RNA sequence: GGAAGUGUGUGCUAGUGAUGGCACAGCUGAACAUUGAUCGCUAGGUAUAGAUUAUAGAUAUAUGGCAGAUCUGCUCAGUGGGUGUCACAUGGUCGCCAUAAGUAACUUGUGUUCGGCUCCCGAUUGCGCGUGUAGCUCCGUAUCCGUCUCCCAUGGAGACGCUACGAACUUGCACGCCUGCACGGUUGAGUCUUCACGUCAUCCUCGAACUACCGCGAUUUCCAAAUUUGGGGGGCAAUCGGAUAGGUUAGACGAGGUAAUUUGUCACUUCCAUAUACAGGCACUGCAGUUUCGCAGUAUGCCAUUUUUUUA
Number, nucleotide and partner (000 for none) at each position: 001g272002g271003a270004a269005g268006u267007g266008u000009g000010u000011g000012c000013u000014a000015g088016u087017g086018a085019u084020g000021g000022c000023a000024c000025a000026g000027c078028u077029g076030a000031a000032c073033a072034u000035u000036g071037a070038u069039c068040g066041c065042u064043a063044g000045g000046u060047a059048u058049a000050g000051a000052u000053u000054a000055u000056a000057g000058a048059u047060a046061u000062a000063u043064g042065g041066c040067a000068g039069a038070u037071c036072u033073g032074c000075u000076c029077a028078g027079u000080g000081g000082g000083u000084g019085u018086c017087a016088c015089a000090u000091g000092g000093u000094c000095g000096c000097c000098a000099u000100a000101a000102g000103u000104a000105a000106c000107u000108u000109g000110u000111g000112u000113u000114c000115g000116g000117c000118u000119c000120c000121c000122g000123a000124u000125u000126g000127c000128g000129c000130g000131u000132g000133u000134a000135g000136c000137u000138c000139c000140g000141u000142a000143u000144c000145c000146g000147u000148c000149u000150c000151c000152c000153a000154u000155g000156g000157a000158g000159a000160c000161g000162c000163u000164a000165c000166g000167a000168a000169c000170u000171u000172g000173c000174a000175c000176g000177c000178c000179u000180g000181c000182a000183c000184g000185g000186u000187u000188g000189a000190g000191u000192c000193u000194u000195c000196a000197c000198g000199u000200c000201a000202u000203c000204c000205u000206c000207g000208a000209a000210c000211u000212a000213c000214c000215g000216c000217g000218a000219u000220u000221u000222c000223c000224a000225a000226a000227u000228u000229u000230g000231g000232g000233g000234g000235g000236c000237a000238a000239u000240c000241g000242g000243a000244u000245a000246g000247g000248u000249u000250a000251g000252a000253c000254g000255a000256g000257g000258u000259a000260a000261u000262u000263u000264g000265u000266c007267a006268c005269u004270u003271c002272c001273a000274u000275a000276u000277a000278c000279a000280g303281g302282c301283a298284c297285u296286g295287c294288a000289g000290u000291u000292u000293c000294g287295c286296a285297g284298u283299a000300u000301g282302c281303c280304a000305u000306u000307u000308u000309u000310u000311u000312a000

Shown here is a 312-nucleotide RNA sequence from Cotesia congregata, a member of the family "Arthropod 7SK RNA". The organism belongs to Cotesia, within Eukaryota. A reference for the family is Gruber et al. (2008), "Arthropod 7SK RNA", Mol Biol Evol.